[Rfam]
Nucleotides: 070
Base pairs, nucleotide, nucleotide: 006065007064008063009062010061011060012059013058014057015056016055017050018049019048020047021046026040027039028038029037030036
Number, partner (000 for none) and nucleotide at each position: 001000c002000a003000a004000a005000u006065u007064g008063a009062u010061c011060g012059c013058u014057c015056a016055g017050g018049g019048g020047g021046g022000a023000a024000a025000a026040g027039c028038u029037g030036c031000a032000u033000u034000a035000u036030g037029c038028g039027g040026c041000a042000g043000g044000u045000a046021c047020c048019u049018c050017u051000u052000c053000a054000a055016u056015u057014g058013g059012g060011c061010g062009g063008u064007u065006a066000a067000a068000a069000c070000u

Shown here is a 70-nucleotide RNA sequence, a member of the family "Hepatitis C virus stem-loop VII". The literature on the family includes a 2015 paper in RNA by Fricke et al., "Conserved RNA secondary structures and long-range interactions in hepatitis C viruses". The base pairs follow the family's consensus structure, which was predicted with RNAfold. It is one of the family's seed sequences.